[Rfam]
RNA sequence: GGCCUAUUUUGCUCAGGCGGAGCUCGACCGCCACGGCAAAUGGUGAUGUCGUUCAUCGACACGCACCGCGAGGAACUGGGUAUCGAGCCGAUCUGCCGUGAACUGGCAAUCGCCC
Numbered sequence: 001g002g003c004c005u006a007u008u009u010u011g012c013u014c015a016g017g018c019g020g021a022g023c024u025c026g027a028c029c030g031c032c033a034c035g036g037c038a039a040a041u042g043g044u045g046a047u048g049u050c051g052u053u054c055a056u057c058g059a060c061a062c063g064c065a066c067c068g069c070g071a072g073g074a075a076c077u078g079g080g081u082a083u084c085g086a087g088c089c090g091a092u093c094u095g096c097c098g099u100g101a102a103c104u105g106g107c108a109a110u111c112g113c114c115c
Stems, first nucleotide, its partner, number of pairs: 016032005078115003089112002092109001094108005

The family of this 115-nucleotide RNA sequence from alpha proteobacterium BAL199 is "ALIL pseudoknot". Rfam links the family to the GO term positive regulation of translational frameshifting. Taxonomically the source falls in Alphaproteobacteria (Bacteria, Pseudomonadati, Pseudomonadota). It is annotated as a cis-regulatory element.